Shown here is a 53-nucleotide sequence from Nocardiopsis alba, a member of the family "DUF3800-XI RNA". The sequence is in the family's curated seed alignment. By type it is a small RNA. About the family: Actinobacteria, Firmicutes, Proteobacteria, Spirochaetes (1 example). NCBI's taxonomy places the organism under Bacteria, Bacillati, Actinomycetes, Nocardiopsis, Nocardiopsis alba.

RNA sequence: UGGUCUGGUUGGAAAACCAGGGACCACCCCAGGUGUGGGCGGGGAACCUGCCC
Numbered sequence: 001u002g003g004u005c006u007g008g009u010u011g012g013a014a015a016a017c018c019a020g021g022g023a024c025c026a027c028c029c030c031a032g033g034u035g036u037g038g039g040c041g042g043g044g045a046a047c048c049u050g051c052c053c
Stems, first nucleotide, its partner, number of pairs: 001026006007018004